Record summary: A member of the RNA family "Mason-Pfizer monkey virus packaging signal" from Molossus molossus, 287 nucleotides long. By type it is a cis-regulatory element. Lineage of the source: Eukaryota > Deuterostomia > Gnathostomata > Amniota > Molossus.
RNA sequence: UGGCACCCAACGUGGGGUGCCAGCAUGGAAUAUCCAGUGAAGGACGCUGUUCGAGUGGCUGGCAGAAAGGAAAGCAAAGAAAAAGAAAGAAAAAGAAAAGAGGGAGCGACAUGGGAACCUGCUGUGUCUGUAUUCCUCGGGUAAGUGAACGGUGAUUAUGGGUCAAGCAUUGAGCCAAAAGAAGGUGUUCAUUGAAGGACUAAAAAAGGCUAUCAAAGCACAAGGAGUAAAGGUGAAAAUUAAGCAUUUGUGUCAGUAUUUUGAUUAUAUUAAGAAAGUUUGUCCUU
Numbered sequence: 001u002g003g004c005a006c007c008c009a010a011c012g013u014g015g016g017g018u019g020c021c022a023g024c025a026u027g028g029a030a031u032a033u034c035c036a037g038u039g040a041a042g043g044a045c046g047c048u049g050u051u052c053g054a055g056u057g058g059c060u061g062g063c064a065g066a067a068a069g070g071a072a073a074g075c076a077a078a079g080a081a082a083a084a085g086a087a088a089g090a091a092a093a094a095g096a097a098a099a100g101a102g103g104g105a106g107c108g109a110c111a112u113g114g115g116a117a118c119c120u121g122c123u124g125u126g127u128c129u130g131u132a133u134u135c136c137u138c139g140g141g142u143a144a145g146u147g148a149a150c151g152g153u154g155a156u157u158a159u160g161g162g163u164c165a166a167g168c169a170u171u172g173a174g175c176c177a178a179a180a181g182a183a184g185g186u187g188u189u190c191a192u193u194g195a196a197g198g199a200c201u202a203a204a205a206a207a208g209g210c211u212a213u214c215a216a217a218g219c220a221c222a223a224g225g226a227g228u229a230a231a232g233g234u235g236a237a238a239a240u241u242a243a244g245c246a247u248u249u250g251u252g253u254c255a256g257u258a259u260u261u262u263g264a265u266u267a268u269a270u271u272a273a274g275a276a277a278g279u280u281u282g283u284c285c286u287u
Base pairs, nucleotide, nucleotide: 007028008027012024013023034062035061036060037059100138101137102135106131107130110126111125112124113123114122146165147164148163150162153160154159171215172214173213174210175209176208221263222262223261224260225259227257228256231249232248233247234246235245272287273286274285276283
Pairs were carried over by alignment from the consensus structure, which was predicted with PFOLD.